[Rfam]
RNA sequence: GGAUUGAUACUCAAGUUGGUGAAGAGGGCACCCUGCUAAGGUGUUAGGUCGGGCAACCGGCGCGAGAGUUCGAGUCUCUCUCAAUCCG
Numbered sequence: 001g002g003a004u005u006g007a008u009a010c011u012c013a014a015g016u017u018g019g020u021g022a023a024g025a026g027g028g029c030a031c032c033c034u035g036c037u038a039a040g041g042u043g044u045u046a047g048g049u050c051g052g053g054c055a056a057c058c059g060g061c062g063c064g065a066g067a068g069u070u071c072g073a074g075u076c077u078c079u080c081u082c083a084a085u086c087c088g
Stems, first nucleotide, its partner, number of pairs: 001087007010026003028044005064080005
Dot-bracket structure: (((((((..(((...........))).(((((.......)))))...................(((((.......)))))))))))).